[Rfam]
RNA sequence: CAAGUAAAUCAGAUAGUCGCGGGUAUUUUACCCGAGGAAAGUCGGAGCUCCGUAGGGCAAGGUGCUGGAUAACGUCCAGUGGAGGCGACUCCAAGGAAAGUGCCACAGAAAUAAACCGCCGGUAACGGAGGUCAGAGGUCGGAAGUCGGAGGACAGAACUUAGAGAUCGGAGUUAGGAUAAAAGAGCGCUUCUGGCUUGUGACCUUCGUUAACGGUAAGGGUGGAACGGUGAGGUAAGAGCUCACCAGCAAACUGGUAACUGUUUGGCUAGGCAAACCCCACCUGGAGCAAGACCGAAUAGAGGAACAUAAGGUUGCCCGCCUGUUCCCGGGUUAGGUCGCUAGAGGUGCCAGGUAACUGACAUCCCAGAUAGAUGACUAUCAAAUACAGAACUCCGCUUAUAGAUUUGCUUGUUUC
Numbered sequence: 001c002a003a004g005u006a007a008a009u010c011a012g013a014u015a016g017u018c019g020c021g022g023g024u025a026u027u028u029u030a031c032c033c034g035a036g037g038a039a040a041g042u043c044g045g046a047g048c049u050c051c052g053u054a055g056g057g058c059a060a061g062g063u064g065c066u067g068g069a070u071a072a073c074g075u076c077c078a079g080u081g082g083a084g085g086c087g088a089c090u091c092c093a094a095g096g097a098a099a100g101u102g103c104c105a106c107a108g109a110a111a112u113a114a115a116c117c118g119c120c121g122g123u124a125a126c127g128g129a130g131g132u133c134a135g136a137g138g139u140c141g142g143a144a145g146u147c148g149g150a151g152g153a154c155a156g157a158a159c160u161u162a163g164a165g166a167u168c169g170g171a172g173u174u175a176g177g178a179u180a181a182a183a184g185a186g187c188g189c190u191u192c193u194g195g196c197u198u199g200u201g202a203c204c205u206u207c208g209u210u211a212a213c214g215g216u217a218a219g220g221g222u223g224g225a226a227c228g229g230u231g232a233g234g235u236a237a238g239a240g241c242u243c244a245c246c247a248g249c250a251a252a253c254u255g256g257u258a259a260c261u262g263u264u265u266g267g268c269u270a271g272g273c274a275a276a277c278c279c280c281a282c283c284u285g286g287a288g289c290a291a292g293a294c295c296g297a298a299u300a301g302a303g304g305a306a307c308a309u310a311a312g313g314u315u316g317c318c319c320g321c322c323u324g325u326u327c328c329c330g331g332g333u334u335a336g337g338u339c340g341c342u343a344g345a346g347g348u349g350c351c352a353g354g355u356a357a358c359u360g361a362c363a364u365c366c367c368a369g370a371u372a373g374a375u376g377a378c379u380a381u382c383a384a385a386u387a388c389a390g391a392a393c394u395c396c397g398c399u400u401a402u403a404g405a406u407u408u409g410c411u412u413g414u415u416u417c
Stems, first nucleotide, its partner, number of pairs: 001413010011402001012382007020034006039400003043397005048288004055319004060284005065079005080094001081092004095279002100277002102273003116220002118216004123211012228246006248268001249266005255260001292339004303328005311323004346365004351360003
Shown here is a 417-nucleotide RNA sequence from Syntrophomonas zehnderi, a member of the family "Bacterial RNase P class A". Rfam classes the family as a ribozyme. Taxonomically the source falls in Syntrophomonas zehnderi (Bacteria, Bacillati, Clostridia, Eubacteriales). Rfam's curators write: Ribonuclease P (RNase P) is a ubiquitous endoribonuclease, found in archaea, bacteria and eukarya as well as chloroplasts and mitochondria.